[Rfam]
RNA sequence: AUGCAAUGAUGAGCGAAGUAUAGUCUGACCUGGUAUUGCCAUUGCUUUGGCGCUGGCUCUGACCAGGGUGUGACCCCUUAAUCUUCUCUCUGAGCUG
Numbered sequence: 001a002u003g004c005a006a007u008g009a010u011g012a013g014c015g016a017a018g019u020a021u022a023g024u025c026u027g028a029c030c031u032g033g034u035a036u037u038g039c040c041a042u043u044g045c046u047u048u049g050g051c052g053c054u055g056g057c058u059c060u061g062a063c064c065a066g067g068g069u070g071u072g073a074c075c076c077c078u079u080a081a082u083c084u085u086c087u088c089u090c091u092g093a094g095c096u097g
Base pairs, nucleotide, nucleotide: 001096003095004094038057039056040055041054
RNA: Z30 small nucleolar RNA